[Rfam]
RNA sequence: UAUUUAUCAGUGACCGUGUUCACUAUAAAUA
Numbered sequence: 001u002a003u004u005u006a007u008c009a010g011u012g013a014c015c016g017u018g019u020u021c022a023c024u025a026u027a028a029a030u031a
Stems, first nucleotide, its partner, number of pairs: 001031007009024005014018001
RNA: Iron response element II
Organism: Polypterus senegalus